[Rfam]
RNA sequence: AAGUAGUGUGACAUGCCCGUUUGGGAUAUACUCUGAUGUAUGUUAUUUAAUAUUUAAUUGUUUUUGGGUAACGGGGUGUUACA
Numbered sequence: 001a002a003g004u005a006g007u008g009u010g011a012c013a014u015g016c017c018c019g020u021u022u023g024g025g026a027u028a029u030a031c032u033c034u035g036a037u038g039u040a041u042g043u044u045a046u047u048u049a050a051u052a053u054u055u056a057a058u059u060g061u062u063u064u065u066g067g068g069u070a071a072c073g074g075g076g077u078g079u080u081a082c083a
Stems, first nucleotide, its partner, number of pairs: 007083008016075006
Annotation
A member of the RNA family "MIR2617 microRNA precursor family" from Medicago truncatula, 83 nucleotides long. The organism belongs to Medicago, within Eukaryota.